[Rfam]
RNA sequence: GUUAACCUUCAGGGUUAGGUGAAAUUCCUUACCGGCGGUAUGGCGUAGGCCGAGCCCGCGAGCCCGCAGGGGCAGAUCUGGUGAAAAGCCAGGGCCGACAGUUAAAGUCUGGAUGGGAGAAGGUGGUU
Dot-bracket structure: ..(.((((((......(((.......))).[[((((((...............[[))))..(((......)))...(((((.......)))))]])).(((.....]]))).......)))))).)..
Numbered sequence: 001g002u003u004a005a006c007c008u009u010c011a012g013g014g015u016u017a018g019g020u021g022a023a024a025u026u027c028c029u030u031a032c033c034g035g036c037g038g039u040a041u042g043g044c045g046u047a048g049g050c051c052g053a054g055c056c057c058g059c060g061a062g063c064c065c066g067c068a069g070g071g072g073c074a075g076a077u078c079u080g081g082u083g084a085a086a087a088g089c090c091a092g093g094g095c096c097g098a099c100a101g102u103u104a105a106a107g108u109c110u111g112g113a114u115g116g117g118a119g120a121a122g123g124u125g126g127u128u
Stems, first nucleotide, its partner, number of pairs: 003126001005124006017029003031108002033097002035059004054095002062073003077093005099111003

This 128-nucleotide RNA sequence from Desulfotomaculum nigrificans belongs to the Rfam family "FMN riboswitch aptamer (RFN element)".